[Rfam]
A member of the RNA family "Burkholderia RNA 11" from Methylibium sp. NZG, 122 nucleotides long. Pairs were carried over by alignment from the consensus structure, which was predicted with RNAfold. It is annotated as a small RNA. Rfam's curators write: Co-purified with Hfq, expression confirmed by Northern blot. Predicted target marZ. Overlaps coding sequence. For this family Rfam cites "Experimental identification of small non-coding regulatory RNAs in the opportunistic human pathogen Burkholderia cenocepacia J2315" (Ramos et al., Genomics, 2013).

RNA sequence: GGAACUUGUUGCUGGCCCACGGCAACGUCGUCGUGUUCCGCUCGCUGCUGGGCAUCUCGUGGAUGUGGUUCUUCGGCGCGGUGUUCCUGUCGCAGUUUCCAUCGUUUGCGAAAGAGGUUCUG
Numbered sequence: 001g002g003a004a005c006u007u008g009u010u011g012c013u014g015g016c017c018c019a020c021g022g023c024a025a026c027g028u029c030g031u032c033g034u035g036u037u038c039c040g041c042u043c044g045c046u047g048c049u050g051g052g053c054a055u056c057u058c059g060u061g062g063a064u065g066u067g068g069u070u071c072u073u074c075g076g077c078g079c080g081g082u083g084u085u086c087c088u089g090u091c092g093c094a095g096u097u098u099c100c101a102u103c104g105u106u107u108g109c110g111a112a113a114g115a116g117g118u119u120c121u122g
Base pairs, nucleotide, nucleotide: 011048012047014045021038022037025034026033051121052120054118055117057115058114060112063105064104065103067099068098071095072094074092075091076090077089078088080087081086